This 349-nucleotide RNA from Parablautia intestinalis belongs to the Rfam family "transfer-messenger RNA". The match comes from Rfam's covariance-model search (124 bits). The literature on the family includes a 1996 paper in RNA by Williams and Bartel, "Phylogenetic analysis of tmRNA secondary structure". Gene Ontology term of the family: RNA catabolic process.
RNA sequence: GGGAUAGUAAAGGUUUCGACAGGGGUCUUGCAGCUGGAGAAGCUAUCCGCAGGCGAUGCGUCAAAUCGCAAAAAUAAAUAUAAACGCUGAAGAUAAUUUAGCAUUCGCUGCCUAAGGGCAGCUGUCCGGCCUUAUGCACCUACACAUAGGGAACCGGGCAUCGACUAUGUAGGAAACGACACGGGCUAAGCUUUGCACCUGUGGGCGUAUUAUGAAGCUACUAAAUGGACCGGGGUGUCGGUUUCCUGGUUCAGGAGGGAAUGAGGGUUUCCCGAAAUAAUCGACUAUGAUAGUAGAAGGACAGGGAAUGGGUCUUUGGACGCGGGUUCGACUCCCGCCUAUUCCAUUU
Numbered sequence: 001g002g003g004a005u006a007g008u009a010a011a012g013g014u015u016u017c018g019a020c021a022g023g024g025g026u027c028u029u030g031c032a033g034c035u036g037g038a039g040a041a042g043c044u045a046u047c048c049g050c051a052g053g054c055g056a057u058g059c060g061u062c063a064a065a066u067c068g069c070a071a072a073a074a075u076a077a078a079u080a081u082a083a084a085c086g087c088u089g090a091a092g093a094u095a096a097u098u099u100a101g102c103a104u105u106c107g108c109u110g111c112c113u114a115a116g117g118g119c120a121g122c123u124g125u126c127c128g129g130c131c132u133u134a135u136g137c138a139c140c141u142a143c144a145c146a147u148a149g150g151g152a153a154c155c156g157g158g159c160a161u162c163g164a165c166u167a168u169g170u171a172g173g174a175a176a177c178g179a180c181a182c183g184g185g186c187u188a189a190g191c192u193u194u195g196c197a198c199c200u201g202u203g204g205g206c207g208u209a210u211u212a213u214g215a216a217g218c219u220a221c222u223a224a225a226u227g228g229a230c231c232g233g234g235g236u237g238u239c240g241g242u243u244u245c246c247u248g249g250u251u252c253a254g255g256a257g258g259g260a261a262u263g264a265g266g267g268u269u270u271c272c273c274g275a276a277a278u279a280a281u282c283g284a285c286u287a288u289g290a291u292a293g294u295a296g297a298a299g300g301a302c303a304g305g306g307a308a309u310g311g312g313u314c315u316u317u318g319g320a321c322g323c324g325g326g327u328u329c330g331a332c333u334c335c336c337g338c339c340u341a342u343u344c345c346a347u348u349u
Stems, first nucleotide, its partner, number of pairs: 001345007020318009034305002037302001043293005048060004053069004107122005123160006130151007139173006180203006189219006221258002226253005233246003237285004242279001322338005